[Rfam]
RNA sequence: UUAGUUAACCGAAUGAUCGCGCCAAAGUCUUUUGGUGAGGAAAGUCCGGGCUUCGCAGGGCAGGAUGCCGGAUAACGUCCGGUAGGGGUGACCCUCAGGCUAGUGCAACAGAAAUAAACCGCCGGUAUUAGCCGGUAAGGGUGGAAAGGCGGGGUAAGAGCCCACCGCUUGGCUGGUAACAGGCAAGGCACAUGUAAACCCCAUCCGAAGCAAGGCAGGAGAAAAGCUAUGGGCUUGCCCGGUCCGCUUUUCGGUGUGCCGCUGGAGCUUGCUGGCAACAGCAAGUCGAGAUAGAUGAUCAUUUAAGACAGAACCCGGCUUAUAGAUUAGCUAAAUUC
Numbered sequence: 001u002u003a004g005u006u007a008a009c010c011g012a013a014u015g016a017u018c019g020c021g022c023c024a025a026a027g028u029c030u031u032u033u034g035g036u037g038a039g040g041a042a043a044g045u046c047c048g049g050g051c052u053u054c055g056c057a058g059g060g061c062a063g064g065a066u067g068c069c070g071g072a073u074a075a076c077g078u079c080c081g082g083u084a085g086g087g088g089u090g091a092c093c094c095u096c097a098g099g100c101u102a103g104u105g106c107a108a109c110a111g112a113a114a115u116a117a118a119c120c121g122c123c124g125g126u127a128u129u130a131g132c133c134g135g136u137a138a139g140g141g142u143g144g145a146a147a148g149g150c151g152g153g154g155u156a157a158g159a160g161c162c163c164a165c166c167g168c169u170u171g172g173c174u175g176g177u178a179a180c181a182g183g184c185a186a187g188g189c190a191c192a193u194g195u196a197a198a199c200c201c202c203a204u205c206c207g208a209a210g211c212a213a214g215g216c217a218g219g220a221g222a223a224a225a226g227c228u229a230u231g232g233g234c235u236u237g238c239c240c241g242g243u244c245c246g247c248u249u250u251u252c253g254g255u256g257u258g259c260c261g262c263u264g265g266a267g268c269u270u271g272c273u274g275g276c277a278a279c280a281g282c283a284a285g286u287c288g289a290g291a292u293a294g295a296u297g298a299u300c301a302u303u304u305a306a307g308a309c310a311g312a313a314c315c316c317g318g319c320u321u322a323u324a325g326a327u328u329a330g331c332u333a334a335a336u337u338c
Stems, first nucleotide, its partner, number of pairs: 001334008010325001011323001012303007020037007042321003046318005051210004058240004063206005068082005083097001084095004098201002103199002105195003119140002121136006148166002151163003167189001168187004173182003214260004222251006231245005267286008
Rfam assigns this 338-nucleotide sequence from Anaerostipes caccae to the family "Bacterial RNase P class A". Its family is annotated with tRNA processing, dimeric ribonuclease P complex and ribonuclease P activity in the Gene Ontology. It is annotated as a ribozyme. Ribonuclease P (RNase P) is a ubiquitous endoribonuclease, found in archaea, bacteria and eukarya as well as chloroplasts and mitochondria.